[Rfam]
Purine riboswitch aptamer: a 102-nucleotide sequence from Paenibacillus albiflavus.
Lineage of the source: Bacteria > Bacillati > Bacillota > Bacilli > Paenibacillus.
The base pairs follow the family's consensus structure, which is taken from published work.

RNA sequence: CAACUUAAUAUAAAUCAAUCUCGUAUAACGUCAGGAAUAUGGCCUGAAAGUCUCUACCCAGAAACCGUAAAUUACUGGACUACGAGGGUGAUGUAAGUCUGC
Number, nucleotide and partner (000 for none) at each position: 001c000002a000003a000004c000005u000006u000007a000008a000009u000010a000011u000012a000013a000014a000015u000016c000017a000018a000019u087020c086021u085022c084023g083024u082025a081026u000027a000028a000029c000030g000031u047032c046033a045034g044035g043036a000037a000038u000039a000040u000041g000042g000043c035044c034045u033046g032047a031048a000049a000050g000051u000052c000053u000054c000055u000056a000057c000058c078059c077060a076061g075062a000063a073064a072065c000066c000067g000068u000069a000070a000071a000072u064073u063074a000075c061076u060077g059078g058079a000080c000081u025082a024083c023084g022085a021086g020087g019088g000089u000090g000091a000092u000093g000094u000095a000096a000097g000098u000099c000100u000101g000102c000